RNA sequence: GUGGAAGUCAAUCGGGAAGAAUCCAUCCAUGGGAUCUUAAAAGGGCAUAUGGGUAUUGGAGUCAGUGAAGUCCUCACGGUCACACCCUCCAACAUUUCAACAGUUUGCCUGAGUUUUUUAGCCAUUGGCUCCGCUAACUGAAGCAGAAUUCUCCAAAAUGUAGAGCAGGGUUUUAUGGCUAAUUGCUUAGCAAACCGGCAAGUCACAGAACGGCAAUGGACUCAGUCAUGGGUCUU
Numbered sequence: 001g002u003g004g005a006a007g008u009c010a011a012u013c014g015g016g017a018a019g020a021a022u023c024c025a026u027c028c029a030u031g032g033g034a035u036c037u038u039a040a041a042a043g044g045g046c047a048u049a050u051g052g053g054u055a056u057u058g059g060a061g062u063c064a065g066u067g068a069a070g071u072c073c074u075c076a077c078g079g080u081c082a083c084a085c086c087c088u089c090c091a092a093c094a095u096u097u098c099a100a101c102a103g104u105u106u107g108c109c110u111g112a113g114u115u116u117u118u119u120a121g122c123c124a125u126u127g128g129c130u131c132c133g134c135u136a137a138c139u140g141a142a143g144c145a146g147a148a149u150u151c152u153c154c155a156a157a158a159u160g161u162a163g164a165g166c167a168g169g170g171u172u173u174u175a176u177g178g179c180u181a182a183u184u185g186c187u188u189a190g191c192a193a194a195c196c197g198g199c200a201a202g203u204c205a206c207a208g209a210a211c212g213g214c215a216a217u218g219g220a221c222u223c224a225g226u227c228a229u230g231g232g233u234c235u236u
Stems, first nucleotide, its partner, number of pairs: 058090003103195006123185001124183004219234005
Dot-bracket structure: .........................................................(((...........................)))............((((((..............(((((....................................................)))).)....)))))).......................(((((......)))))..
The family of this 236-nucleotide RNA sequence from Rhamnella rubrinervis is "Early nodulin 40". Rfam 15.1 lists 341 matches to the family in 193 species. A search with the family's covariance model found it, with a score of 111 bits. The family's RNA type in Rfam is non-coding RNA gene. Rfam links the family to the GO term nodulation.